[Rfam]
RNA sequence: GUCCAAAUUACAGUGAUAUUGUCUUUUCCAAGCACAUAUCUGAUUGCUCUGUGUAGAAAAUGACUGUUGCUGAGUGAUUGAC
Numbered sequence: 001g002u003c004c005a006a007a008u009u010a011c012a013g014u015g016a017u018a019u020u021g022u023c024u025u026u027u028c029c030a031a032g033c034a035c036a037u038a039u040c041u042g043a044u045u046g047c048u049c050u051g052u053g054u055a056g057a058a059a060a061u062g063a064c065u066g067u068u069g070c071u072g073a074g075u076g077a078u079u080g081a082c
Base pairs, nucleotide, nucleotide: 001082002081003080006079008077009076010075011074
Description:
Small nucleolar RNA SNORD121A: an 82-nucleotide sequence from Nyctiprogne leucopyga. NCBI's taxonomy places the organism under Eukaryota, Teleostomi, Tetrapoda, Amniota, Nyctiprogne. A reference for the family is Yang et al. (2006), "snoSeeker: an advanced computational package for screening of guide and orphan snoRNA genes in the human genome", Nucleic Acids Res. It scores 59 bits against the family's covariance model. The base pairs follow the family's consensus structure, which was predicted with WAR. By type it is a C/D-box small nucleolar RNA.